[Rfam]
RNA sequence: AUUGGGGUGUAGAAGAAAACCAGACAGAUUCCCACUGAUUUUCCAAAAUGAUGGAUGUUAUUACUACUAACCAGCUGCAUCCAAU
Dot-bracket structure: (((((...........................................................................)))))

Small nucleolar RNA R12: an 85-nucleotide sequence from Sorghum bicolor.
On this family, see Chen et al., Nucleic Acids Res 2003: "The high diversity of snoRNAs in plants: identification and comparative study of 120 snoRNA genes from Oryza sativa".
It scores 46 bits against the family's covariance model.
NCBI's taxonomy places the organism under Eukaryota, Streptophytina, Tracheophyta, Petrosaviidae, Sorghum.